[Rfam]
RNA: mir-290 microRNA precursor family
RNA sequence: GUGGUACUCAAACUGUGGGGGCAUUUUUUUGUUUUUGAAUAAAAAGUGCCGCCAGGUUUUGAGCGUUAC
Numbered sequence: 001g002u003g004g005u006a007c008u009c010a011a012a013c014u015g016u017g018g019g020g021g022c023a024u025u026u027u028u029u030u031g032u033u034u035u036u037g038a039a040u041a042a043a044a045a046g047u048g049c050c051g052c053c054a055g056g057u058u059u060u061g062a063g064c065g066u067u068a069c
Stems, first nucleotide, its partner, number of pairs: 004066002007063006016054003020050006027043003